[Rfam]
RNA sequence: AAUAUUAGUUGAAUAAAUACUCGUAUAAUCAUGGGAAUAUGGCCCAUAAGUCUCUACCGGAUGACCGUAAAUCGUUCGACUACGAGUGGAAGCACAUCUAGG
Numbered sequence: 001a002a003u004a005u006u007a008g009u010u011g012a013a014u015a016a017a018u019a020c021u022c023g024u025a026u027a028a029u030c031a032u033g034g035g036a037a038u039a040u041g042g043c044c045c046a047u048a049a050g051u052c053u054c055u056a057c058c059g060g061a062u063g064a065c066c067g068u069a070a071a072u073c074g075u076u077c078g079a080c081u082a083c084g085a086g087u088g089g090a091a092g093c094a095c096a097u098c099u100a101g102g
Stems, first nucleotide, its partner, number of pairs: 018088008029049001031047005058078007
RNA: Purine riboswitch aptamer